[Rfam]
This 57-nucleotide sequence from Pseudonocardia sulfidoxydans belongs to the Rfam family "F6 TB sRNA".
It is annotated as a small RNA.
The family has 16 seed sequences and 310 matches in Rfam 15.1.
A reference for the family is Arnvig and Young (2009), "Identification of small RNAs in Mycobacterium tuberculosis", Mol Microbiol.
RNA sequence: UGUACAGCCCCGUGGUGCUGUCGGACCCCCGACCUGGCAGCCCCGCGGGGUUCUCCA
Numbered sequence: 001u002g003u004a005c006a007g008c009c010c011c012g013u014g015g016u017g018c019u020g021u022c023g024g025a026c027c028c029c030c031g032a033c034c035u036g037g038c039a040g041c042c043c044c045g046c047g048g049g050g051u052u053c054u055c056c057a
Stems, first nucleotide, its partner, number of pairs: 002056001004054001007051009017041006